mir-21 microRNA precursor family: a 72-nucleotide sequence from Ameiurus melas. Pairs were carried over by alignment from the consensus structure, which was predicted with RNAalifold. A search with the family's covariance model found it, with a score of 79 bits. On this family, see Xu et al., FEBS Lett 2006: "Identification of microRNAs from different tissues of chicken embryo and adult chicken". The organism belongs to Ameiurus, within Eukaryota.

RNA sequence: UGUCAGAUAGCUUAUCAGACUGGUGUUGGCUCUGAAGUUGUAAGGCGACAACAGUCUGUAGGCUGACUGAAA
Numbered sequence: 001u002g003u004c005a006g007a008u009a010g011c012u013u014a015u016c017a018g019a020c021u022g023g024u025g026u027u028g029g030c031u032c033u034g035a036a037g038u039u040g041u042a043a044g045g046c047g048a049c050a051a052c053a054g055u056c057u058g059u060a061g062g063c064u065g066a067c068u069g070a071a072a
Stems, first nucleotide, its partner, number of pairs: 008065008018056005024050005030044001